[Rfam]
RNA sequence: UUGUAAGCUCAAAGCCACAGCAGAAGUGCUUAUGGCACGGCCCUGUCAGAUUUCAACAAAUCUGCAAAUGCUACU
Numbered sequence: 001u002u003g004u005a006a007g008c009u010c011a012a013a014g015c016c017a018c019a020g021c022a023g024a025a026g027u028g029c030u031u032a033u034g035g036c037a038c039g040g041c042c043c044u045g046u047c048a049g050a051u052u053u054c055a056a057c058a059a060a061u062c063u064g065c066a067a068a069u070g071c072u073a074c075u
Stems, first nucleotide, its partner, number of pairs: 014041003019075002022072002025069001026038003047064007
RNA: Mammalian CPEB3 ribozyme